[Rfam]
This 94-nucleotide RNA sequence from Malus domestica belongs to the Rfam family "Small nucleolar RNA SNORD34". By type it is a C/D-box small nucleolar RNA. Its Rfam clan is "SNORD34 clan". snoRNA U34 is found in intron 5 of the ribosomal protein L13a gene in humans. A reference for the family is Chen et al. (2003), "The high diversity of snoRNAs in plants: identification and comparative study of 120 snoRNA genes from Oryza sativa", Nucleic Acids Res. The match comes from Rfam's covariance-model search (40 bits). Gene Ontology terms of the family: nucleolus and RNA processing.
RNA sequence: GAGGCCGGUGAUGAUCGAAACAUAUUUUGCCUACAUUGCUUGAUUAUCUUAUUUUAUUGAGAUAAUGAUAAAAUCCGAUGUAUCUGAGGCCUUC
Numbered sequence: 001g002a003g004g005c006c007g008g009u010g011a012u013g014a015u016c017g018a019a020a021c022a023u024a025u026u027u028u029g030c031c032u033a034c035a036u037u038g039c040u041u042g043a044u045u046a047u048c049u050u051a052u053u054u055u056a057u058u059g060a061g062a063u064a065a066u067g068a069u070a071a072a073a074u075c076c077g078a079u080g081u082a083u084c085u086g087a088g089g090c091c092u093u094c
Stems, first nucleotide, its partner, number of pairs: 001093001003091004